[Rfam]
RNA sequence: AUGUCAGCUUGCAAUCUGCAAGCAGCAUAACUUGGUGUAACUCACUCCUUUGACCACGGAUGUACUGGCACUGGAGAGAAUACACAAAAUGAGAGGUCAGGCAUUUUGUCUGGCCUUUUUUAUU
Numbered sequence: 001a002u003g004u005c006a007g008c009u010u011g012c013a014a015u016c017u018g019c020a021a022g023c024a025g026c027a028u029a030a031c032u033u034g035g036u037g038u039a040a041c042u043c044a045c046u047c048c049u050u051u052g053a054c055c056a057c058g059g060a061u062g063u064a065c066u067g068g069c070a071c072u073g074g075a076g077a078g079a080a081u082a083c084a085c086a087a088a089a090u091g092a093g094a095g096g097u098c099a100g101g102c103a104u105u106u107u108g109u110c111u112g113g114c115c116u117u118u119u120u121u122a123u124u
Base pairs, nucleotide, nucleotide: 002024009021010020011019012018013017035085036084037083038082039081045076046075047074048073051070052069054068055067056066087123089121091119092118093117094116095115096114097113098112099111100110102108103107

This 124-nucleotide RNA from Pseudochrobactrum saccharolyticum belongs to the Rfam family "Alphaproteobacterial sRNA ar35". A reference for the family is del Val et al. (2012), "A survey of sRNA families in alpha-proteobacteria", RNA Biol. The pairing is the family consensus, mapped onto this sequence. The source organism's lineage runs through Bacteria, Pseudomonadati, Alphaproteobacteria, Brucellaceae and Pseudochrobactrum. Rfam 15.1 lists 266 matches to the family in 153 species. The match comes from Rfam's covariance-model search (55 bits).